U1 spliceosomal RNA: a 166-nucleotide sequence from Neocallimastix californiae. A reference for the family is Zwieb (1997), "The uRNA database", Nucleic Acids Res. From the family's description: U1 is a small nuclear RNA (snRNA) component of the spliceosome (involved in pre-mRNA splicing). A search with the family's covariance model found it, with a score of 109 bits. Rfam classes the family as a spliceosomal small nuclear RNA.
[Rfam]
RNA sequence: AUACUUACCUGGCGAGGGUCAUUUGUGAUCAAGAAGGCUAAUGAUCCGAUCGGGAAAUUUAACAUUGCACGAAGUUAAGUAGCCUGGUCGCGAACAUUCUUAUGAAUGUCUCGGUCGCAUAAUUUUUGAUAGUGGGGUGUACAGGCGUUCGCGCCAGUAGACCCUU
Numbered sequence: 001a002u003a004c005u006u007a008c009c010u011g012g013c014g015a016g017g018g019u020c021a022u023u024u025g026u027g028a029u030c031a032a033g034a035a036g037g038c039u040a041a042u043g044a045u046c047c048g049a050u051c052g053g054g055a056a057a058u059u060u061a062a063c064a065u066u067g068c069a070c071g072a073a074g075u076u077a078a079g080u081a082g083c084c085u086g087g088u089c090g091c092g093a094a095c096a097u098u099c100u101u102a103u104g105a106a107u108g109u110c111u112c113g114g115u116c117g118c119a120u121a122a123u124u125u126u127u128g129a130u131a132g133u134g135g136g137g138u139g140u141a142c143a144g145g146c147g148u149u150c151g152c153g154c155c156a157g158u159a160g161a162c163c164c165u166u
Stems, first nucleotide, its partner, number of pairs: 012118004016047008025038002048089004053085001057080001059078005091113003094109003098105002134165005142157001144155004